[Rfam]
Nucleotides: 114
Base pairs, nucleotide, nucleotide: 001046002045003044004043007038008037010035011034012033013032014031015030016029017028018027061086062085063084064083065082066081068076069075070074094110095109096108097107098106099105100104
Number, partner (000 for none) and nucleotide at each position: 001046g002045c003044a004043g005000g006000u007038g008037a009000a010035u011034g012033u013032a014031a015030c016029g017028u018027c019000a020000a021000g022000c023000g024000a025000u026000g027018g028017g029016c030015g031014u032013u033012a034011c035010g036000c037008u038007c039000c040000a041000u042000a043004u044003u045002g046001u047000c048000u049000g050000a051000c052000u053000u054000c055000c056000u057000u058000u059000c060000a061086g062085a063084a064083u065082u066081a067000a068076u069075g070074c071000u072000c073000a074070g075069c076068g077000c078000a079000u080000u081066u082065a083064a084063u085062u086061c087000g088000c089000a090000c091000g092000a093000c094110g095109c096108c097107g098106g099105c100104c101000g102000c103000u104100g105099g106098c107097c108096g109095g110094u111000u112000u113000u114000u

Shown here is a 114-nucleotide sequence from Erwinia sp. Leaf53, a member of the family "Fumarate/nitrate reductase regulator sRNA". The match comes from Rfam's covariance-model search (99 bits). The literature on the family includes a 2010 paper in Mol Microbiol by Durand and Storz, "Reprogramming of anaerobic metabolism by the FnrS small RNA". NCBI's taxonomy places the organism under Bacteria, Pseudomonadota, Enterobacterales, Erwiniaceae, Erwinia.